Shown here is a 67-nucleotide sequence, a member of the family "F6 TB sRNA". The family's RNA type in Rfam is small RNA. It scores 47 bits against the family's covariance model.

[Rfam]
RNA sequence: AAACCUGCCCCGCGUUGCUGCCUGAUUCCAGGGAAUGCAGAAUCAGGCAGCAACGCGGGGCAGGUUU
Dot-bracket structure: .((((.((((((((((((((((((((((...........)))))))))))))))))))))).)))).
Numbered sequence: 001a002a003a004c005c006u007g008c009c010c011c012g013c014g015u016u017g018c019u020g021c022c023u024g025a026u027u028c029c030a031g032g033g034a035a036u037g038c039a040g041a042a043u044c045a046g047g048c049a050g051c052a053a054c055g056c057g058g059g060g061c062a063g064g065u066u067u
Stems, first nucleotide, its partner, number of pairs: 002066004007061022